[Rfam]
RNA sequence: CUCAACUUUACAACUGAGGAUGGGAAUGACGGAACCAUGUCUCCUUAAACCAUCCCGACAAUACUCCUGCAUGCGUUAUAAUUUAUAGAUUAUGGGGUAUGAAGCCAGGUGGAGUCGGCAGAACAGAGGCUAAAGCCUUACUUUUUUUUUAGUGAUGCCAUGCCAAUGGAUAUGCCGGGCGGCUGAAAA
Numbered sequence: 001c002u003c004a005a006c007u008u009u010a011c012a013a014c015u016g017a018g019g020a021u022g023g024g025a026a027u028g029a030c031g032g033a034a035c036c037a038u039g040u041c042u043c044c045u046u047a048a049a050c051c052a053u054c055c056c057g058a059c060a061a062u063a064c065u066c067c068u069g070c071a072u073g074c075g076u077u078a079u080a081a082u083u084u085a086u087a088g089a090u091u092a093u094g095g096g097g098u099a100u101g102a103a104g105c106c107a108g109g110u111g112g113a114g115u116c117g118g119c120a121g122a123a124c125a126g127a128g129g130c131u132a133a134a135g136c137c138u139u140a141c142u143u144u145u146u147u148u149u150u151a152g153u154g155a156u157g158c159c160a161u162g163c164c165a166a167u168g169g170a171u172a173u174g175c176c177g178g179g180c181g182g183c184u185g186a187a188a189a
Base pairs, nucleotide, nucleotide: 018055019054020053021052022051023050031045032044034042056181057180059178066109067108068107069106070101071100072099073098074097076095077094078093079092080091081090082089083088116177117176118175119174120173124168125167128164129163130152131151132150133149134148135147
Group II catalytic intron D1-D4-5: a 189-nucleotide sequence from Bacillus sp. 1NLA3E. For this family Rfam cites "Group II introns: structure and catalytic versatility of large natural ribozymes" (Lehmann and Schmidt, Crit Rev Biochem Mol Biol, 2003). Group II introns are found in rRNA, tRNA and mRNA of organelles in fungi, plants and protists, and also in mRNA in bacteria. The source organism's lineage runs through Bacteria, Bacillota, Bacilli, Bacillaceae and Bacillus.